[Rfam]
RNA sequence: AGCAAAAUGAGGAGCUCAUAUGAUCUGAAGUAUCUAUGUUUGUUGAUACAUCCAUUCGUGGUCUUCAAAGUUCUCUGAUUGCU
Numbered sequence: 001a002g003c004a005a006a007a008u009g010a011g012g013a014g015c016u017c018a019u020a021u022g023a024u025c026u027g028a029a030g031u032a033u034c035u036a037u038g039u040u041u042g043u044u045g046a047u048a049c050a051u052c053c054a055u056u057c058g059u060g061g062u063c064u065u066c067a068a069a070g071u072u073c074u075c076u077g078a079u080u081g082c083u
Stems, first nucleotide, its partner, number of pairs: 001083005
The record is an 83-nucleotide sequence from Setaria italica, which matches "Small nucleolar RNA R160" in Rfam. The source organism's lineage runs through Eukaryota, Streptophytina, Mesangiospermae, Poales and Setaria. It scores 83 bits against the family's covariance model. About the family: snoR160 is a C/D box small nucleolar RNA, which acts as a methylation guide for 25S ribosomal RNA in plants. snoR160 has been alternatively named snoZ270 in rice.